The record is a 50-nucleotide RNA sequence from Actibacterium lipolyticum, which matches "SAM/SAH riboswitch aptamer" in Rfam. Its family is annotated with S-adenosylmethionine metabolic process and regulation of gene expression in the Gene Ontology. NCBI's taxonomy places the organism under Bacteria, Alphaproteobacteria, Rhodobacterales, Roseobacteraceae, Actibacterium. The base pairs follow the family's consensus structure, which is taken from published work. A search with the family's covariance model found it, with a score of 57 bits.
RNA sequence: CAACUGUCACAACGGCUUCCUGACGUGACAGUUUUGCACAUAAUGGAGCA
Numbered sequence: 001c002a003a004c005u006g007u008c009a010c011a012a013c014g015g016c017u018u019c020c021u022g023a024c025g026u027g028a029c030a031g032u033u034u035u036g037c038a039c040a041u042a043a044u045g046g047a048g049c050a
Stems, first nucleotide, its partner, number of pairs: 004031007013022002015049003019046002